[Rfam]
RNA sequence: AGGUAAUGCCUGCUGUACCUCUAUCACUGCAGGCACUCGGUCACACUGUGGGUCAGUGUACCUUAGACGUUCAUCGUCGAGGGUGUGAUGUGAGGUGGGGUUUAAUGCCCU
Numbered sequence: 001a002g003g004u005a006a007u008g009c010c011u012g013c014u015g016u017a018c019c020u021c022u023a024u025c026a027c028u029g030c031a032g033g034c035a036c037u038c039g040g041u042c043a044c045a046c047u048g049u050g051g052g053u054c055a056g057u058g059u060a061c062c063u064u065a066g067a068c069g070u071u072c073a074u075c076g077u078c079g080a081g082g083g084u085g086u087g088a089u090g091u092g093a094g095g096u097g098g099g100g101u102u103u104a105a106u107g108c109c110c111u
Stems, first nucleotide, its partner, number of pairs: 001020004007035007036094004040089008050063004066078004097111005
RNA: epsC RNA